Glycine riboswitch aptamer: a 108-nucleotide RNA from Mycobacterium triviale. Taxonomically the source falls in Mycobacterium (subgen. Mycolicibacillus) (Bacteria, Actinomycetota, Mycobacteriales, Mycobacterium). Gene Ontology term of the family: glycine biosynthetic process.
RNA sequence: UCCGAUGCCUCUGGAAAGUGGCGAUGUCGUGUCGCCCGCCGAUGGGGAAAGGCGCCGCGCGCCGAAUCUCUCAGGCGCCCGGUCACGGGUGAGGACAGAGGGAGAGGG
Dot-bracket structure: .....(.((((((......((((.........)))).(((((..(((...((((.....))))....))))).)))...................)))))).).....